[Rfam]
RNA sequence: UCAUGCCCCCUGGGAGAGACCGGCCGUUGCGCCGGCGCCGAAGGCGCAACACCGCCCGGAAUCGCUCAGGCACACCGGACCACGGGGCUUAA
Dot-bracket structure: .....((((.(((......((((........)))).(((((..(((...(.......)....))))).)))........))).)))).....
RNA: Glycine riboswitch aptamer